[Rfam]
RNA sequence: GCUGCGUCUGUGAUGAGACCACGGAUCUGGCGCCAGGCGUGGCGCCCGACACACAUGAGGAUACCUUCCAUGCUGCCUUCCUUCUGAGACCGAC
Numbered sequence: 001g002c003u004g005c006g007u008c009u010g011u012g013a014u015g016a017g018a019c020c021a022c023g024g025a026u027c028u029g030g031c032g033c034c035a036g037g038c039g040u041g042g043c044g045c046c047c048g049a050c051a052c053a054c055a056u057g058a059g060g061a062u063a064c065c066u067u068c069c070a071u072g073c074u075g076c077c078u079u080c081c082u083u084c085u086g087a088g089a090c091c092g093a094c
Stems, first nucleotide, its partner, number of pairs: 001094001003092002006090001
Small nucleolar RNA U83B: a 94-nucleotide RNA from Takifugu rubripes. Rfam's curators write: U83B belongs to the C/D family of snoRNAs. U83B like U83A has no documented RNA target and they share the same host gene with the C/D box snoRNA U43 (RPL3). N.B. U83A/B/C have no sequence similarity with the U83 snoRNA that was cloned by Jady and Kiss (2000). Lineage of the source: Eukaryota > Vertebrata > Actinopterygii > Percomorphaceae > Takifugu. The family's RNA type in Rfam is C/D-box small nucleolar RNA. It scores 78 bits against the family's covariance model.